[Rfam]
RNA sequence: CGGGGACCGUUGGCAGACUCCCCGCUCCAAGACGCCCCCCGGCGUCCAAGCUCUGC
Numbered sequence: 001c002g003g004g005g006a007c008c009g010u011u012g013g014c015a016g017a018c019u020c021c022c023c024g025c026u027c028c029a030a031g032a033c034g035c036c037c038c039c040c041g042g043c044g045u046c047c048a049a050g051c052u053c054u055g056c
Stems, first nucleotide, its partner, number of pairs: 001024006013056005031046005